[Rfam]
RNA: Mammalian CPEB3 ribozyme
RNA sequence: AAAUAACCGUCGGGGGUCAUUGUAGAAGCGUGCUCGUCACGACCCCUGCCAGCCCUUUUCUAUGGCUGCAAUUCUACA
Numbered sequence: 001a002a003a004u005a006a007c008c009g010u011c012g013g014g015g016g017u018c019a020u021u022g023u024a025g026a027a028g029c030g031u032g033c034u035c036g037u038c039a040c041g042a043c044c045c046c047u048g049c050c051a052g053c054c055c056u057u058u059u060c061u062a063u064g065g066c067u068g069c070a071a072u073u074c075u076a077c078a
Base pairs, nucleotide, nucleotide: 013046014045015044016043017042018041021078022077023076024075025074026073027072028040030038050068051067052066053065054064056062